Rfam assigns this 71-nucleotide RNA sequence from Ophiophagus hannah to the family "mir-1 microRNA precursor family". Rfam describes the family as follows. This family represents the microRNA (miRNA) mir-1 family. miRNAs are transcribed as ~70nt precursors (modelled here) and subsequently processed by the Dicer enzyme to give a ~22nt product. In this case the mature sequence comes from the 3' arm of the precursor. The extents of the hairpin precursors are not generally known and are estimated based on hairpin prediction. For this family Rfam cites "An extensive class of small RNAs in Caenorhabditis elegans" (Lee and Ambros, Science, 2001).
RNA sequence: AGUCUACAUACUUCUUCAUAUGCCCAUAUGGAGUCGGCUGGCUAUGGAAUGUUAAGAAGUAUGUAUCUUUG
Number, nucleotide and partner (000 for none) at each position: 001a000002g000003u000004c000005u065006a064007c063008a062009u061010a060011c059012u058013u057014c056015u055016u054017c000018a052019u051020a050021u049022g000023c000024c047025c046026a045027u044028a043029u000030g000031g000032a000033g000034u000035c000036g000037g000038c000039u000040g000041g000042c000043u028044a027045u026046g025047g024048a000049a021050u020051g019052u018053u000054a016055a015056g014057a013058a012059g011060u010061a009062u008063g007064u006065a005066u000067c000068u000069u000070u000071g000